The record is an 86-nucleotide RNA sequence from Weissella koreensis, which matches "Bacterial small signal recognition particle RNA" in Rfam. Rfam links the family to the GO terms signal recognition particle, plasma membrane targeting and SRP-dependent cotranslational protein targeting to membrane, signal sequence recognition. From the family's description: The signal recognition particle (SRP) is a universally conserved ribonucleoprotein involved in the co-translational targeting of proteins to membranes. The match comes from Rfam's covariance-model search (48 bits). A reference for the family is Regalia et al. (2002), "Prediction of signal recognition particle RNA genes", Nucleic Acids Res.
RNA sequence: AGACAAGGGCAAGUUUGCACUUCGAACCGUGUCAGGGUCGGAAGGCAGCAGCACUAAGGAGAUCGUGGACUGUGCCUUAUAUAUGA
Numbered sequence: 001a002g003a004c005a006a007g008g009g010c011a012a013g014u015u016u017g018c019a020c021u022u023c024g025a026a027c028c029g030u031g032u033c034a035g036g037g038u039c040g041g042a043a044g045g046c047a048g049c050a051g052c053a054c055u056a057a058g059g060a061g062a063u064c065g066u067g068g069a070c071u072g073u074g075c076c077u078u079a080u081a082u083a084u085g086a
Stems, first nucleotide, its partner, number of pairs: 004085002006078004010072001012071006020061004029054004037046003